[Rfam]
RNA sequence: CCUCUAUUUCUUGGCGGGGUCCGGGUGCGCAGUCCCGCUCCCUGUGAUGUUCGGAGGUAGAGGGAAGGGGCUCCGGCCUCCCCGGCGUUAUGUCUUCGGUCCCGGUGGCUGCCCGUCCGCCGGUUCUAUCCUCACUCGCCGGGACAAGC
Numbered sequence: 001c002c003u004c005u006a007u008u009u010c011u012u013g014g015c016g017g018g019g020u021c022c023g024g025g026u027g028c029g030c031a032g033u034c035c036c037g038c039u040c041c042c043u044g045u046g047a048u049g050u051u052c053g054g055a056g057g058u059a060g061a062g063g064g065a066a067g068g069g070g071c072u073c074c075g076g077c078c079u080c081c082c083c084g085g086c087g088u089u090a091u092g093u094c095u096u097c098g099g100u101c102c103c104g105g106u107g108g109c110u111g112c113c114c115g116u117c118c119g120c121c122g123g124u125u126c127u128a129u130c131c132u133c134a135c136u137c138g139c140c141g142g143g144a145c146a147a148g149c
Stems, first nucleotide, its partner, number of pairs: 001057005015044005022037004083141005102123007
About this RNA
Rfam assigns this 149-nucleotide RNA from Ornithorhynchus anatinus to the family "Small nucleolar RNA SNORA57". Rfam describes the family as follows. U99 belongs to the H/ACA class of snoRNAs which are thought to guide the sites of modification of uridines to pseudouridines, the target for this family is unknown. Rfam's curators put it in the seed alignment. The source organism's lineage runs through Eukaryota, Chordata, Gnathostomata, Sarcopterygii and Ornithorhynchus. The family's consensus secondary structure was predicted with PFOLD. Rfam classes the family as an H/ACA-box small nucleolar RNA.